Notes: Rfam assigns this 195-nucleotide sequence from Arsenophonus endosymbiont of Aleurodicus floccissimus to the family "GcvB RNA". It scores 84 bits against the family's covariance model. The organism belongs to Arsenophonus, within Bacteria. Rfam's curators write: The gcvB gene encodes a small untranslated RNA involved in expression of the dipeptide and oligopeptide transport systems in Escherichia coli.
RNA sequence: CCUUCCUCGGCCUGAAUGAACCCCUAAGCAGUUAAUUUAUUUAAAGUUAUUGGCUUUAUGGUUGUGAUGUUGUGUUUACAAAUUAUCUGGUUUUUCCAGGUUGAGUAGUUAAUUCUACUAUUUUCACUCCUAUACAUUUACCUUGUCUGUCCAUAGUUAUUUUAACGCGACGCAUUUAUUGCGGCGUUUUUUUAU
Numbered sequence: 001c002c003u004u005c006c007u008c009g010g011c012c013u014g015a016a017u018g019a020a021c022c023c024c025u026a027a028g029c030a031g032u033u034a035a036u037u038u039a040u041u042u043a044a045a046g047u048u049a050u051u052g053g054c055u056u057u058a059u060g061g062u063u064g065u066g067a068u069g070u071u072g073u074g075u076u077u078a079c080a081a082a083u084u085a086u087c088u089g090g091u092u093u094u095u096c097c098a099g100g101u102u103g104a105g106u107a108g109u110u111a112a113u114u115c116u117a118c119u120a121u122u123u124u125c126a127c128u129c130c131u132a133u134a135c136a137u138u139u140a141c142c143u144u145g146u147c148u149g150u151c152c153a154u155a156g157u158u159a160u161u162u163u164a165a166c167g168c169g170a171c172g173c174a175u176u177u178a179u180u181g182c183g184g185c186g187u188u189u190u191u192u193u194a195u
Base pairs, nucleotide, nucleotide: 009055010054011053012052015051016050026048028047029046032043034041035040083103085101086100087099088098089097090096104119105118106117107116108115134162136161138159164188165187166186167185168184171183172182173181